[Rfam]
RNA sequence: CCCAGGGUGUCAACCCUGGGCUAUUGGCUGCCGCCCCUUCGGAGCU
Dot-bracket structure: ((((((((....))))))))............((.((...)).)).
Numbered sequence: 001c002c003c004a005g006g007g008u009g010u011c012a013a014c015c016c017u018g019g020g021c022u023a024u025u026g027g028c029u030g031c032c033g034c035c036c037c038u039u040c041g042g043a044g045c046u
Stems, first nucleotide, its partner, number of pairs: 001020008033045002036042002
This 46-nucleotide sequence from Urbifossiella limnaea belongs to the Rfam family "Acido-Lenti-1 RNA".
By type it is a small RNA.
The base pairs follow the family's consensus structure, which is taken from published work.